[Rfam]
RNA: Bacterial small subunit ribosomal RNA, nucleotides 541 to 894
Organism: Candidatus Marinamargulisbacteria bacterium SCGC AG-410-N11
RNA sequence: GGCAUAAAGAGCACGUAGGUGGUAAAUUAAGUCUUAUGUUAAAGGCAUCGGCUCAACCGAUGUUUGCAUCAGAAACUGAUUUACUAGAGAACAAUAGAGGGAAGCGGAACUCACGGUGUAGCGGUGAAAUGCGUAGAUAUCGUGAGGAACACCAGUUGCGAAGGCGGCUUCCUGGAUUGAUUCUGACACUGAGGUGCGAAAGCAUGGGGAGCGAACGGGAUUAGAUACCCCGGUAGUCCAUGCCGUAAACGUUGUUCACUAGGUGUAGGAGGUAUCGACCCCUUCUGUGCCAAAGAUAAUUCGUUAAGUGAACCGCCUGGGAAGUACGACCGCAAGGUUAAAACUCAAAGGAAU
Numbered sequence: 001g002g003c004a005u006a007a008a009g010a011g012c013a014c015g016u017a018g019g020u021g022g023u024a025a026a027u028u029a030a031g032u033c034u035u036a037u038g039u040u041a042a043a044g045g046c047a048u049c050g051g052c053u054c055a056a057c058c059g060a061u062g063u064u065u066g067c068a069u070c071a072g073a074a075a076c077u078g079a080u081u082u083a084c085u086a087g088a089g090a091a092c093a094a095u096a097g098a099g100g101g102a103a104g105c106g107g108a109a110c111u112c113a114c115g116g117u118g119u120a121g122c123g124g125u126g127a128a129a130u131g132c133g134u135a136g137a138u139a140u141c142g143u144g145a146g147g148a149a150c151a152c153c154a155g156u157u158g159c160g161a162a163g164g165c166g167g168c169u170u171c172c173u174g175g176a177u178u179g180a181u182u183c184u185g186a187c188a189c190u191g192a193g194g195u196g197c198g199a200a201a202g203c204a205u206g207g208g209g210a211g212c213g214a215a216c217g218g219g220a221u222u223a224g225a226u227a228c229c230c231c232g233g234u235a236g237u238c239c240a241u242g243c244c245g246u247a248a249a250c251g252u253u254g255u256u257c258a259c260u261a262g263g264u265g266u267a268g269g270a271g272g273u274a275u276c277g278a279c280c281c282c283u284u285c286u287g288u289g290c291c292a293a294a295g296a297u298a299a300u301u302c303g304u305u306a307a308g309u310g311a312a313c314c315g316c317c318u319g320g321g322a323a324g325u326a327c328g329a330c331c332g333c334a335a336g337g338u339u340a341a342a343a344c345u346c347a348a349a350g351g352a353a354u
Base pairs, nucleotide, nucleotide: 001317002316003315009314011197012196013195014194016191018190019189020188022084023083024082025081026080027079028078030077031076032073033072034071036069037068038067039066045063046062047061048060049059050058051057088184089183090182092179093178094177095176099173100172101171102170103169104168105167106150110146111145112144113143114142115141116140117139121132122131123130158165159164202243203242204241205240206239207238211237212236216232217231218230219229254313255312256311257310258309259308262291263290264289265288266287267286268285269284270283271282272281295302296301319346320345321344328339329338330337331336